[Rfam]
Group II catalytic intron D1-D4-7: a 149-nucleotide sequence from Pseudomonas indica.

RNA sequence: CCCGUUGUGCGACCAACGGUAGCCUACGAUGGCGUGCAUCACUGGUAACGGUGGUGUUCGAAGCCCAUCUGACAACGUAGCCCCUAUCUAGGGUGCAGCCCUUCCGCGAGGCAGGCUGUGGAUACUCGGAGCAGUGCCGGGUUGAGGCG
Numbered sequence: 001c002c003c004g005u006u007g008u009g010c011g012a013c014c015a016a017c018g019g020u021a022g023c024c025u026a027c028g029a030u031g032g033c034g035u036g037c038a039u040c041a042c043u044g045g046u047a048a049c050g051g052u053g054g055u056g057u058u059c060g061a062a063g064c065c066c067a068u069c070u071g072a073c074a075a076c077g078u079a080g081c082c083c084c085u086a087u088c089u090a091g092g093g094u095g096c097a098g099c100c101c102u103u104c105c106g107c108g109a110g111g112c113a114g115g116c117u118g119u120g121g122a123u124a125c126u127c128g129g130a131g132c133a134g135u136g137c138c139g140g141g142u143u144g145a146g147g148c149g
Stems, first nucleotide, its partner, number of pairs: 002019006028069005033060002036057009082093004094120004104111002124142006
Dot-bracket structure: .((((((......))))))........(((((((.(((((((((....))))))))).))....)))))............((((....))))((((......((....)).....))))...((((((.......)))))).......
Source information:
From the family's description: Group II introns are found in rRNA, tRNA and mRNA of organelles in fungi, plants and protists, and also in mRNA in bacteria. Taxonomically the source falls in Pseudomonas (Bacteria, Gammaproteobacteria, Pseudomonadales, Pseudomonadaceae). For this family Rfam cites "The ins and outs of group II introns" (Bonen and Vogel, Trends Genet, 2001).